[Rfam]
RNA sequence: AACAGAGUAGGUAAAAUGCGUCAAGUGUCAAAGGAUGGGAGGUUGCCUUUGAACGAAGGGAAGACCCGCGUUGUUUUAUCGCUUCCGCUGUU
Numbered sequence: 001a002a003c004a005g006a007g008u009a010g011g012u013a014a015a016a017u018g019c020g021u022c023a024a025g026u027g028u029c030a031a032a033g034g035a036u037g038g039g040a041g042g043u044u045g046c047c048u049u050u051g052a053a054c055g056a057a058g059g060g061a062a063g064a065c066c067c068g069c070g071u072u073g074u075u076u077u078a079u080c081g082c083u084u085c086c087g088c089u090g091u092u
Stems, first nucleotide, its partner, number of pairs: 001092005010080009019070003025054002028052007038086005058067003
About this RNA
THF (Tetrahydrofolate) riboswitch aptamer: a 92-nucleotide sequence from Dethiosulfatibacter aminovorans. The match comes from Rfam's covariance-model search (75 bits). The source organism's lineage runs through Bacteria, Bacillota, Tissierellia, Dethiosulfatibacter and Dethiosulfatibacter aminovorans. Pairs were carried over by alignment from the consensus structure, which is taken from published work.